[Rfam]
RNA: mir-9229 microRNA precursor family
RNA sequence: GAGACACCCCCAUGGAGCAGAACUUCCUUCAGUGGGGCUUUGGUGCUCACUGAGUCUGCCCCUGGAGUGUGUGGCU
Numbered sequence: 001g002a003g004a005c006a007c008c009c010c011c012a013u014g015g016a017g018c019a020g021a022a023c024u025u026c027c028u029u030c031a032g033u034g035g036g037g038c039u040u041u042g043g044u045g046c047u048c049a050c051u052g053a054g055u056c057u058g059c060c061c062c063u064g065g066a067g068u069g070u071g072u073g074g075c076u
Stems, first nucleotide, its partner, number of pairs: 001075001004072004009067001011065001014062002017059003022055002029053008037044002